RNA sequence: GGUGCCAUAGCCAAGCGGUAAGGCGUGGGACUGCAACUCCCUGAUCGGCGGUUCAAAUCCGUCUGGCACCU
Number, nucleotide and partner (000 for none) at each position: 001g070002g069003u068004g067005c066006c065007a064008u000009a000010g024011c023012c022013a000014a000015g000016c000017g000018g000019u000020a000021a000022g012023g011024c010025g000026u000027g041028g040029g039030a038031c000032u000033g000034c000035a000036a000037c000038u030039c029040c028041c027042u000043g000044a000045u000046c000047g063048g062049c061050g060051g059052u000053u000054c000055a000056a000057a000058u000059c051060c050061g049062u048063c047064u007065g006066g005067c004068a003069c002070c001071u000
The family of this 71-nucleotide sequence from Lachnospiraceae bacterium XPB1003 is "tRNA". Rfam links the family to the GO term triplet codon-amino acid adaptor activity. The organism belongs to Lachnospiraceae, within Bacteria. Transfer RNA (tRNA) molecules are approximately 80 nucleotides in length.